[Rfam]
RNA sequence: GAGUUCUAACCAGUUCAACUGUCGGGAUCACAUGCUGAACCUCUUUGGUUCCUUUAUCCUGAGGAAAGUCCCCGGAGACAGGGCGGAAAGCGUCGCAUUAUGAUAAUGCUGGCUGUGAUGGUUUCGUAGGGGAUGUUACCUGCGCGAAAAUCGAUCACUAAGCGUUGCUCAGAGCAAAGUGGAUGUAUGAAAGACGAAAUUGUCUAACAAAAUGGGGCUCACUCGGUUUAGAUCU
Numbered sequence: 001g002a003g004u005u006c007u008a009a010c011c012a013g014u015u016c017a018a019c020u021g022u023c024g025g026g027a028u029c030a031c032a033u034g035c036u037g038a039a040c041c042u043c044u045u046u047g048g049u050u051c052c053u054u055u056a057u058c059c060u061g062a063g064g065a066a067a068g069u070c071c072c073c074g075g076a077g078a079c080a081g082g083g084c085g086g087a088a089a090g091c092g093u094c095g096c097a098u099u100a101u102g103a104u105a106a107u108g109c110u111g112g113c114u115g116u117g118a119u120g121g122u123u124u125c126g127u128a129g130g131g132g133a134u135g136u137u138a139c140c141u142g143c144g145c146g147a148a149a150a151u152c153g154a155u156c157a158c159u160a161a162g163c164g165u166u167g168c169u170c171a172g173a174g175c176a177a178a179g180u181g182g183a184u185g186u187a188u189g190a191a192a193g194a195c196g197a198a199a200u201u202g203u204c205u206a207a208c209a210a211a212a213u214g215g216g217g218c219u220c221a222c223u224c225g226g227u228u229u230a231g232a233u234c235u
Stems, first nucleotide, its partner, number of pairs: 002235002005232004009227003014191004018186002022062007037051005067219002070217004082094004095109006111156002117152003124147004130140002133137001193204004
The family of this 235-nucleotide RNA from Pieris brassicae is "RNase MRP". For this family Rfam cites "Secondary structure of RNase MRP RNA as predicted by phylogenetic comparison" (Schmitt et al., FASEB J, 1993). The source organism's lineage runs through Eukaryota, Eumetazoa, Neoptera, Pieridae and Pieris. RNase MRP is an enzymatically active ribonucleoprotein with two distinct roles in eukaryotes.